mir-73 microRNA precursor family: a 95-nucleotide sequence from Caenorhabditis brenneri. Its Rfam clan is "mir-73 clan".
[Rfam]
RNA sequence: CGGUCCUUAAUACGACUGAGCUUCCACAUCAGACCACAGCUAUUCACAAAAAAAAUGCUGGCAAGAUGUAGGCAGUUCAGUUGUAUGCGGUGACC
Numbered sequence: 001c002g003g004u005c006c007u008u009a010a011u012a013c014g015a016c017u018g019a020g021c022u023u024c025c026a027c028a029u030c031a032g033a034c035c036a037c038a039g040c041u042a043u044u045c046a047c048a049a050a051a052a053a054a055a056u057g058c059u060g061g062c063a064a065g066a067u068g069u070a071g072g073c074a075g076u077u078c079a080g081u082u083g084u085a086u087g088c089g090g091u092g093a094c095c
Base pairs, nucleotide, nucleotide: 013083014082015081016080017079018078019077020076021075022074024072025071026069027068028067029066030065034061035060038059039058040057
NCBI's taxonomy places the organism under Eukaryota, Bilateria, Rhabditina, Rhabditoidea, Caenorhabditis. Pairs were carried over by alignment from the consensus structure, which was predicted with RNAalifold.